[Rfam]
RNA sequence: AAUAUGUUAAUAUUUUGAUUUCGUAUAUCCCCGGUAAUACGGAUCGGGGGUCUCUACAAGGAACCCUAAAUUCCUGGCUACGAAUAGGAGCUUUCGCAUA
Numbered sequence: 001a002a003u004a005u006g007u008u009a010a011u012a013u014u015u016u017g018a019u020u021u022c023g024u025a026u027a028u029c030c031c032c033g034g035u036a037a038u039a040c041g042g043a044u045c046g047g048g049g050g051u052c053u054c055u056a057c058a059a060g061g062a063a064c065c066c067u068a069a070a071u072u073c074c075u076g077g078c079u080a081c082g083a084a085u086a087g088g089a090g091c092u093u094u095c096g097c098a099u100a
Stems, first nucleotide, its partner, number of pairs: 020084006029049007059075005
Purine riboswitch aptamer: a 100-nucleotide RNA from Paenibacillus macerans. Pairs were carried over by alignment from the consensus structure, which is taken from published work.